[Rfam]
RNA: c-di-AMP riboswitch aptamer (ydaO/yuaA leader)
Organism: Paenibacillus sp. KS1
RNA sequence: AAUUCAGUAUCGCUUAAUCUCCAUGAAGUGGAGAGCGGGGGAACCAGAGUGUGAACGACAUGACAUGAGUACAUGUUCAUUCACACGGAUUAAUUCCUUGGGGUGAAUUAGGGACGACCGAGCCAUGAGCCGGUUGGUUCCGAUAGGGCGACUCUCAAGCCCGAACCCGACAGCUAACCUCGUCAGCGUACCGAGAGAGGGUUC
Numbered sequence: 001a002a003u004u005c006a007g008u009a010u011c012g013c014u015u016a017a018u019c020u021c022c023a024u025g026a027a028g029u030g031g032a033g034a035g036c037g038g039g040g041g042a043a044c045c046a047g048a049g050u051g052u053g054a055a056c057g058a059c060a061u062g063a064c065a066u067g068a069g070u071a072c073a074u075g076u077u078c079a080u081u082c083a084c085a086c087g088g089a090u091u092a093a094u095u096c097c098u099u100g101g102g103g104u105g106a107a108u109u110a111g112g113g114a115c116g117a118c119c120g121a122g123c124c125a126u127g128a129g130c131c132g133g134u135u136g137g138u139u140c141c142g143a144u145a146g147g148g149c150g151a152c153u154c155u156c157a158a159g160c161c162c163g164a165a166c167c168c169g170a171c172a173g174c175u176a177a178c179c180u181c182g183u184c185a186g187c188g189u190a191c192c193g194a195g196a197g198a199g200g201g202u203u204c
Stems, first nucleotide, its partner, number of pairs: 011188004018034007035183006045100002101168003109143001111141005146162004